[Rfam]
The record is a 96-nucleotide sequence from bacterium F16, which matches "Group II catalytic intron D1-D4-1" in Rfam.
The match comes from Rfam's covariance-model search (58 bits).
Rfam links the family to the GO term Group II intron splicing.
Group II introns are found in rRNA, tRNA and mRNA of organelles in fungi, plants and protists, and also in mRNA in bacteria.
The family has 237 seed sequences and 2,508 matches in Rfam 15.1.
RNA sequence: CGCCACCGGAAGCAAUUUCGGUGGUGACGGUUCAGACGUCAGCCGAGGUCAUAGUAGCCUAAUGCCCGGGGUAAUGCCCGGGACAUGGUGAAGGAC
Numbered sequence: 001c002g003c004c005a006c007c008g009g010a011a012g013c014a015a016u017u018u019c020g021g022u023g024g025u026g027a028c029g030g031u032u033c034a035g036a037c038g039u040c041a042g043c044c045g046a047g048g049u050c051a052u053a054g055u056a057g058c059c060u061a062a063u064g065c066c067c068g069g070g071g072u073a074a075u076g077c078c079c080g081g082g083a084c085a086u087g088g089u090g091a092a093g094g095a096c
Stems, first nucleotide, its partner, number of pairs: 001026002004023008039046002048096003057089003066081003